[Rfam]
RNA sequence: GACAUAAGACUCAACCAUAGAAAACAUCCGUGACUGCUUGCAGGUAAAGGAUGUUUUCUAUGUUGGGAGUAAAACAAUAUGAGUAUGAAGGACGACAGUCCGGAAUACGAAUAUUGGUUGCAAUUUCGAGAGUGCGCAGCACAUAGAAAUUGCUUAUGAUA
Numbered sequence: 001g002a003c004a005u006a007a008g009a010c011u012c013a014a015c016c017a018u019a020g021a022a023a024a025c026a027u028c029c030g031u032g033a034c035u036g037c038u039u040g041c042a043g044g045u046a047a048a049g050g051a052u053g054u055u056u057u058c059u060a061u062g063u064u065g066g067g068a069g070u071a072a073a074a075c076a077a078u079a080u081g082a083g084u085a086u087g088a089a090g091g092a093c094g095a096c097a098g099u100c101c102g103g104a105a106u107a108c109g110a111a112u113a114u115u116g117g118u119u120g121c122a123a124u125u126u127c128g129a130g131a132g133u134g135c136g137c138a139g140c141a142c143a144u145a146g147a148a149a150u151u152g153c154u155u156a157u158g159a160u161a
Base pairs, nucleotide, nucleotide: 002160003158004157005156006155007154010069011068012067017061018060019059020058021057022056023055024054025053026052027051028050029049031047033045034043035042036041073118075116076115077114078113079112080111083108084107085106086105090101091100092099093098121152122151123150124149125148126147127146132142133141134140135139